[Rfam]
The family of this 131-nucleotide RNA sequence from Vitis rotundifolia is "MIR845_2 microRNA precursor family".
For this family Rfam cites "The grapevine genome sequence suggests ancestral hexaploidization in major angiosperm phyla" (Jaillon et al., Nature, 2007).
The match comes from Rfam's covariance-model search (125 bits).

RNA sequence: AGAACGCACAUUAAUUAUCCCUAGGGAUAUAGGAUAAAAAAAAACCCUUAAAAAACAAGUUAGCACACUUUUGAAUGGUUCUAGCAUAAUUACUAACCUAUGGCUCUGAUACCAAUUGAAGGAAAAAACCC
Numbered sequence: 001a002g003a004a005c006g007c008a009c010a011u012u013a014a015u016u017a018u019c020c021c022u023a024g025g026g027a028u029a030u031a032g033g034a035u036a037a038a039a040a041a042a043a044a045c046c047c048u049u050a051a052a053a054a055a056c057a058a059g060u061u062a063g064c065a066c067a068c069u070u071u072u073g074a075a076u077g078g079u080u081c082u083a084g085c086a087u088a089a090u091u092a093c094u095a096a097c098c099u100a101u102g103g104c105u106c107u108g109a110u111a112c113c114a115a116u117u118g119a120a121g122g123a124a125a126a127a128a129c130c131c
Stems, first nucleotide, its partner, number of pairs: 009121001011119006022108005028102006048086001053080002056077002060073001062071002
Record summary: The organism belongs to Vitis, within Eukaryota.